RNA: Small nucleolar RNA SNORA57
Organism: Merluccius polli
RNA sequence: CCUCCUUUCUUGGCAUACAUGUUGUUGCUCAGUACUCGUGUAUGUAUGUUUGGAGGUAGAAUAAUGCCAGUGCUAUGUCUUCGGUGCCGAUGUGUUCUCAUAUGCCGGUUCUAUCCUCAAUCGCUGGUACACUG
Number, nucleotide and partner (000 for none) at each position: 001c056002c055003u054004c053005c052006u000007u000008u000009c000010u000011u000012g000013g000014c044015a043016u042017a041018c040019a039020u000021g037022u000023u000024g035025u034026u000027g000028c000029u000030c000031a000032g000033u000034a025035c024036u000037c021038g000039u019040g018041u017042a016043u015044g014045u000046a000047u000048g000049u000050u000051u000052g005053g004054a003055g002056g001057u000058a000059g000060a000061a000062u000063a000064a000065u000066g000067c000068c126069a125070g124071u123072g122073c000074u000075a000076u000077g000078u000079c000080u000081u000082c000083g000084g000085u000086g000087c108088c107089g106090a000091u104092g103093u102094g000095u000096u000097c000098u000099c000100a000101u000102a093103u092104g091105c000106c089107g088108g087109u000110u000111c000112u000113a000114u000115c000116c000117u000118c000119a000120a000121u000122c072123g071124c070125u069126g068127g000128u000129a000130c000131a000132c000133u000134g000